[Rfam]
RNA sequence: ACACUGGAAAGGAGGUGAUCCGGCAGAUGUAUGAAUCCCGGACGCGUGAGGUGGCUGCGGGCUAGCGGCCCGACACCACGCACAGUGCGGUGCCGGACCAGCGCGUGAGCGAAACGCGCAGCCGGCCCAAUCUCCAGCAGUCACCCGACCCGCGAGCCGCCGGUACGUCCGGCCGGCCCUCCUCCGGAGGACCAGGCUCGCGGGUCGUCUGCG
Number, nucleotide and partner (000 for none) at each position: 001a000002c000003a000004c000005u000006g000007g000008a000009a000010a000011g000012g000013a000014g000015g058016u057017g056018a000019u054020c000021c000022g000023g000024c000025a000026g000027a000028u000029g000030u000031a000032u000033g000034a000035a000036u000037c000038c000039c000040g000041g000042a000043c000044g000045c000046g000047u000048g000049a000050g000051g000052u000053g000054g019055c000056u017057g016058c015059g000060g127061g126062c125063u124064a000065g122066c121067g000068g119069c118070c000071c116072g000073a000074c000075a000076c000077c000078a000079c000080g000081c000082a000083c000084a000085g000086u000087g000088c000089g000090g000091u000092g000093c000094c000095g000096g000097a000098c000099c000100a000101g000102c000103g000104c000105g000106u000107g000108a000109g000110c000111g000112a000113a000114a000115c000116g071117c000118g069119c068120a000121g066122c065123c000124g063125g062126c061127c060128c000129a000130a000131u000132c000133u000134c000135c000136a000137g000138c000139a000140g000141u000142c000143a000144c000145c000146c207147g206148a205149c204150c203151c202152g201153c200154g199155a198156g197157c196158c195159g177160c176161c175162g174163g173164u172165a000166c000167g000168u000169c000170c000171g000172g164173c163174c162175g161176g160177c159178c000179c000180u000181c000182c000183u000184c000185c000186g000187g000188a000189g000190g000191a000192c000193c000194a000195g158196g157197c156198u155199c154200g153201c152202g151203g150204g149205u148206c147207g146208u000209c000210u000211g000212c000213g000
RNA: Actinobacteria sRNA Ms_IGR-5
Organism: Streptomyces viridochromogenes